[Rfam]
RNA sequence: AUAGUAUUGGACCGUCGGUCUACCGAGCAAUUACAUCUGCUCGGUGAAAGAUCUUCCCUUUGUCGU
Numbered sequence: 001a002u003a004g005u006a007u008u009g010g011a012c013c014g015u016c017g018g019u020c021u022a023c024c025g026a027g028c029a030a031u032u033a034c035a036u037c038u039g040c041u042c043g044g045u046g047a048a049a050g051a052u053c054u055u056c057c058c059u060u061u062g063u064c065g066u
Stems, first nucleotide, its partner, number of pairs: 004063003009057003014052003019048001021046008
RNA: mir-2774 microRNA precursor family